[Rfam]
RNA sequence: GCGCGAUAGCUACGGCUUCGCAGGCCGACCGCUUCAUGGUGGUCAGCCUCAUCGACCUGCUUCGGCGAAUACAUUCAGAGGUUCGGUAAAGCGGGGAGUAGCAGCGUCGAAACCCGCGACCGGC
Numbered sequence: 001g002c003g004c005g006a007u008a009g010c011u012a013c014g015g016c017u018u019c020g021c022a023g024g025c026c027g028a029c030c031g032c033u034u035c036a037u038g039g040u041g042g043u044c045a046g047c048c049u050c051a052u053c054g055a056c057c058u059g060c061u062u063c064g065g066c067g068a069a070u071a072c073a074u075u076c077a078g079a080g081g082u083u084c085g086g087u088a089a090a091g092c093g094g095g096g097a098g099u100a101g102c103a104g105c106g107u108c109g110a111a112a113c114c115c116g117c118g119a120c121c122g123g124c
Stems, first nucleotide, its partner, number of pairs: 003021004009016002058067003081124001083123005092116004101108001102106001
Rfam assigns this 124-nucleotide RNA sequence to the family "Bacteriophage Diversity-Generating Retroelement RNA". For this family Rfam cites "RNA control of reverse transcription in a diversity-generating retroelement" (Handa et al., Nature, 2025). Rfam classes the family as a small RNA. Pairs were carried over by alignment from the consensus structure, which is taken from published work.